[Rfam]
RNA sequence: GAGAUAUGAUCGGCCCCUGGAGGUUUACUCCGGGGAGCAAGUGCAAAAGGUGUUGAUUCAUCUAGACAGCCGGACGGUGGCCAUGGAAGUCGGAAUCCGCUAAGGAGUGUGUAACAACUCACCGGCCGAAUGAAUCAGCCCUGAAAAUGGAUGGCGCUCAAGCGUGCUACCCAUACCCCGCCGCCAGGGUAGAAACGAUGCCCUGGCGAGUA
Numbered sequence: 001g002a003g004a005u006a007u008g009a010u011c012g013g014c015c016c017c018u019g020g021a022g023g024u025u026u027a028c029u030c031c032g033g034g035g036a037g038c039a040a041g042u043g044c045a046a047a048a049g050g051u052g053u054u055g056a057u058u059c060a061u062c063u064a065g066a067c068a069g070c071c072g073g074a075c076g077g078u079g080g081c082c083a084u085g086g087a088a089g090u091c092g093g094a095a096u097c098c099g100c101u102a103a104g105g106a107g108u109g110u111g112u113a114a115c116a117a118c119u120c121a122c123c124g125g126c127c128g129a130a131u132g133a134a135u136c137a138g139c140c141c142u143g144a145a146a147a148u149g150g151a152u153g154g155c156g157c158u159c160a161a162g163c164g165u166g167c168u169a170c171c172c173a174u175a176c177c178c179c180g181c182c183g184c185c186a187g188g189g190u191a192g193a194a195a196c197g198a199u200g201c202c203c204u205g206g207c208g209a210g211u212a
Stems, first nucleotide, its partner, number of pairs: 001181001003179001007175001012171002021168001023167001026164001028162001048142003052139010069126005075099003081093002100104001105120001109118002182208009
A member of the RNA family "Eukaryotic large subunit ribosomal RNA" from Ramalina farinacea, 212 nucleotides of a longer RNA.
On this family, see Yusupov et al., Science 2001: "Crystal structure of the ribosome at 5.5 A resolution".
Rfam 15.1 lists 107,465 matches to the family in 2,616 species.
It scores 2529 bits against the family's covariance model.
The family's consensus secondary structure is taken from published work.
Taxonomically the source falls in Ramalina (Eukaryota, Fungi, Pezizomycotina, Lecanoromycetes).